[Rfam]
RNA sequence: ACUGGGAGCGUGGCGUCUCCUGUAAUCCGGCUACUCGGAGGUCGGGUGCGGAGGAUGGUUUGAGGUCGGGAGUCCUGAUAUUGAGUGGCUCAUGUUGACUGGACGUCCACACUAAGCCCGGUAUUAAUAUGGACUCCCUGGAGGAAUCUGGGGAGUGCAGGUUAACUAAGGAGAGGCGAACCGGGCCAGAGGGGAAACCCAGCAGCCAAAAGUCUCCGUAUCGGGCAGUAGUGGGAUAGCGGCCGGGAGUGAGUGCUCAUUAACAGCCCAACCAAUACAAUCAGACCUGUUCCUUU
Numbered sequence: 001a002c003u004g005g006g007a008g009c010g011u012g013g014c015g016u017c018u019c020c021u022g023u024a025a026u027c028c029g030g031c032u033a034c035u036c037g038g039a040g041g042u043c044g045g046g047u048g049c050g051g052a053g054g055a056u057g058g059u060u061u062g063a064g065g066u067c068g069g070g071a072g073u074c075c076u077g078a079u080a081u082u083g084a085g086u087g088g089c090u091c092a093u094g095u096u097g098a099c100u101g102g103a104c105g106u107c108c109a110c111a112c113u114a115a116g117c118c119c120g121g122u123a124u125u126a127a128u129a130u131g132g133a134c135u136c137c138c139u140g141g142a143g144g145a146a147u148c149u150g151g152g153g154a155g156u157g158c159a160g161g162u163u164a165a166c167u168a169a170g171g172a173g174a175g176g177c178g179a180a181c182c183g184g185g186c187c188a189g190a191g192g193g194g195a196a197a198c199c200c201a202g203c204a205g206c207c208a209a210a211a212g213u214c215u216c217c218g219u220a221u222c223g224g225g226c227a228g229u230a231g232u233g234g235g236a237u238a239g240c241g242g243c244c245g246g247g248a249g250u251g252a253g254u255g256c257u258c259a260u261u262a263a264c265a266g267c268c269c270a271a272c273c274a275a276u277a278c279a280a281u282c283a284g285a286c287c288u289g290u291u292c293c294u295u296u
Stems, first nucleotide, its partner, number of pairs: 001042003004021005026039003044294003048290004056283005064273003068269003075266003079262002082259006089253005095247001099246004104241003107235002110233005116226009125164004130159002133156010166170001173216005184207003191200003
This 296-nucleotide RNA sequence from Pararge aegeria belongs to the Rfam family "Metazoan signal recognition particle RNA". The match comes from Rfam's covariance-model search (241 bits). The family's RNA type in Rfam is non-coding RNA gene. The literature on the family includes a 2002 paper in Curr Opin Struct Biol by Wild et al., "Towards the structure of the mammalian signal recognition particle". The organism belongs to Pararge aegeria, within Eukaryota.